[Rfam]
RNA sequence: CUCUUAUCAAGAGCAGGUCGAGGGACUAGCCCGAUGACACCCGGCAACCGACAUCGUUUUGUCCAUGCGCAUGCGCGCAUUGGAUCGAAGCAUGCACGGUGCUAAUUCUUGCGGAAACGUCAACGUUUCUGAGAGAUGAGAG
Numbered sequence: 001c002u003c004u005u006a007u008c009a010a011g012a013g014c015a016g017g018u019c020g021a022g023g024g025a026c027u028a029g030c031c032c033g034a035u036g037a038c039a040c041c042c043g044g045c046a047a048c049c050g051a052c053a054u055c056g057u058u059u060u061g062u063c064c065a066u067g068c069g070c071a072u073g074c075g076c077g078c079a080u081u082g083g084a085u086c087g088a089a090g091c092a093u094g095c096a097c098g099g100u101g102c103u104a105a106u107u108c109u110u111g112c113g114g115a116a117a118c119g120u121c122a123a124c125g126u127u128u129c130u131g132a133g134a135g136a137u138g139a140g141a142g
Stems, first nucleotide, its partner, number of pairs: 001142008013042001016041003022032003026111001028109002043103004048099002052094003107134001112131006
Dot-bracket structure: ((((((((....(..(((...(((.[.[[)))......))))((((.((..(((.....................................)))...))))))...(]].]((((((........))))))..)))))))))
Record summary
SAM riboswitch aptamer (S box leader): a 142-nucleotide sequence from Paenibacillus piri. The source organism's lineage runs through Bacteria, Bacilli, Caryophanales, Paenibacillaceae and Paenibacillus. The base pairs follow the family's consensus structure, which is taken from published work. A search with the family's covariance model found it, with a score of 71 bits.